[Rfam]
RNA: sRNA regulator of biofilms A
Organism: Thiopseudomonas denitrificans
Nucleotides: 215
Stems, first nucleotide, its partner, number of pairs: 005019005023049004028045002032041001034039001051140002054138001056136002063073003076130001079128001082126002109121002144151002156180002159177003163173004189204002192201002
Number, partner (000 for none) and nucleotide at each position: 001000g002000c003000c004000a005019g006018a007017g008016g009015u010000g011000u012000c013000g014000a015009a016008c017007c018006u019005c020000c021000g022000g023049g024048u025047u026046u027000u028045u029044c030000a031000g032041g033000c034039g035000a036000a037000c038000g039034u040000c041032c042000c043000c044029g045028a046026a047025a048024a049023c050000c051140c052139g053000u054138g055000c056136u057135g058000c059000a060000g061000g062000c063073a064072u065071c066000c067000a068000c069000a070000a071065g072064a073063u074000g075000a076130u077000u078000u079128g080000c081000a082126c083125g084000a085000g086000g087000u088000u089000a090000c091000g092000a093000c094000u095000g096000g097000a098000a099000c100000g101000u102000u103000g104000u105000u106000g107000u108000c109121c110120u111000g112000a113000g114000g115000g116000a117000c118000g119000g120110g121109g122000a123000a124000g125083c126082g127000c128079c129000u130076g131000c132000a133000u134000a135057c136056g137000u138054c139052c140051g141000g142000c143000u144151u145150u146000a147000c148000a149000a150145a151144g152000c153000c154000a155000u156180c157179g158000a159177c160176c161175g162000g163173u164172u165171g166170u167000c168000c169000u170166a171165c172164a173163g174000a175161c176160g177159g178000c179157c180156g181000c182000c183000c184000g185000c186000c187000u188000c189204c190203g191000c192201a193200a194000c195000a196000a197000c198000u199000u200193u201192u202000c203190c204189g205000u206000c207000g208000u209000c210000a211000c212000u213000u214000u215000u